[Rfam]
RNA sequence: UCCCCCUUAGCUCAGUCGGUAGAGCGUCAGACUGUUAAUCUGCAGGUCGGUGGUUCGAGCCCACCAGGGGGAG
Numbered sequence: 001u002c003c004c005c006c007u008u009a010g011c012u013c014a015g016u017c018g019g020u021a022g023a024g025c026g027u028c029a030g031a032c033u034g035u036u037a038a039u040c041u042g043c044a045g046g047u048c049g050g051u052g053g054u055u056c057g058a059g060c061c062c063a064c065c066a067g068g069g070g071g072a073g
Stems, first nucleotide, its partner, number of pairs: 001072007010025004028042004049065005
Dot-bracket structure: (((((((..((((........))))..((((.......))))......(((((.......)))))))))))).
A member of the RNA family "tRNA" from Naegleria gruberi, 73 nucleotides long. Pairs were carried over by alignment from the consensus structure, which is taken from published work. By type it is a transfer RNA.